[Rfam]
RNA sequence: CCUGUGGAGUGUUAUACCAAAUGUUAGUAGUAUGCUGUGAAAGCUACAAGAACAGACACGUUGAAACAGGAA
Dot-bracket structure: (((((...(((((........(((.....(((..((.....)).)))....))))))))......)))))..
A member of the RNA family "RAGATH-18 RNA", 72 nucleotides long. Rfam's curators put it in the seed alignment. About the family: Actinobacteria, Firmicutes, Fusobacteria, Thermotogae (1 example).